[Rfam]
RNA sequence: CUGGUAACACUGGGGUUCUGAGACAGACAGUGUUAGCUCCAGAAGCAUUGCCUGUCUUAGAACCCCUAUGUUACCAG
Numbered sequence: 001c002u003g004g005u006a007a008c009a010c011u012g013g014g015g016u017u018c019u020g021a022g023a024c025a026g027a028c029a030g031u032g033u034u035a036g037c038u039c040c041a042g043a044a045g046c047a048u049u050g051c052c053u054g055u056c057u058u059a060g061a062a063c064c065c066c067u068a069u070g071u072u073a074c075c076a077g
Stems, first nucleotide, its partner, number of pairs: 001077009012066015028050007
RNA: mir-3170 microRNA precursor family
Organism: Homo sapiens